RNA sequence: GAGCAGACGCCGCCGAGUCGCCCUCCGGGGCGAGCCGGGGACCCACCGCACAACUGGGGUGAAUCCAGCUCCCGGGCACCUGCCCGGAGCCGGUAGGGCUGCUUCCCGCCCGAACCCGUCAGCUAACUCGGUAGGCGGCGACCGGAAGAAGU
Numbered sequence: 001g002a003g004c005a006g007a008c009g010c011c012g013c014c015g016a017g018u019c020g021c022c023c024u025c026c027g028g029g030g031c032g033a034g035c036c037g038g039g040g041a042c043c044c045a046c047c048g049c050a051c052a053a054c055u056g057g058g059g060u061g062a063a064u065c066c067a068g069c070u071c072c073c074g075g076g077c078a079c080c081u082g083c084c085c086g087g088a089g090c091c092g093g094u095a096g097g098g099c100u101g102c103u104u105c106c107c108g109c110c111c112g113a114a115c116c117c118g119u120c121a122g123c124u125a126a127c128u129c130g131g132u133a134g135g136c137g138g139c140g141a142c143c144g145g146a147a148g149a150a151g152u
Stems, first nucleotide, its partner, number of pairs: 011137004018033005034132006044056002057117003065093002068090005096111004
RNA: c-di-AMP riboswitch aptamer (ydaO/yuaA leader)
Organism: Modestobacter versicolor